[Rfam]
RNA sequence: AUACGUCUUCAGGGCGGGGUGAAAGUCCCCACCGGCGGUAGGAUUUAGGGGCGACCCUGGAUCGAGCCCGCGAGCGCCGGCAGGAACUGAUCCUGCCGGGUCAGCAGAUCAGGUGCGCUGCGCCAGCGGCAAUUCCUGGGCCGACGGUCAUAGUCCGGAUGAAAGAAGACGAGA
Numbered sequence: 001a002u003a004c005g006u007c008u009u010c011a012g013g014g015c016g017g018g019g020u021g022a023a024a025g026u027c028c029c030c031a032c033c034g035g036c037g038g039u040a041g042g043a044u045u046u047a048g049g050g051g052c053g054a055c056c057c058u059g060g061a062u063c064g065a066g067c068c069c070g071c072g073a074g075c076g077c078c079g080g081c082a083g084g085a086a087c088u089g090a091u092c093c094u095g096c097c098g099g100g101u102c103a104g105c106a107g108a109u110c111a112g113g114u115g116c117g118c119u120g121c122g123c124c125a126g127c128g129g130c131a132a133u134u135c136c137u138g139g140g141c142c143g144a145c146g147g148u149c150a151u152a153g154u155c156c157g158g159a160u161g162a163a164a165g166a167a168g169a170c171g172a173g174a
Stems, first nucleotide, its partner, number of pairs: 004171007017029003031154002033143002035071004066141002074105002109139005145157003

FMN riboswitch aptamer (RFN element): a 174-nucleotide RNA from Dongia mobilis. The match comes from Rfam's covariance-model search (92 bits). Pairs were carried over by alignment from the consensus structure, which is taken from published work. The source organism's lineage runs through Bacteria, Pseudomonadati, Alphaproteobacteria, Rhodospirillales and Dongia. From the family's description: The RFN element is a highly conserved domain that is found frequently in the 5'-untranslated regions of prokaryotic mRNAs that encode for flavin mononucleotide (FMN) biosynthesis and transport proteins.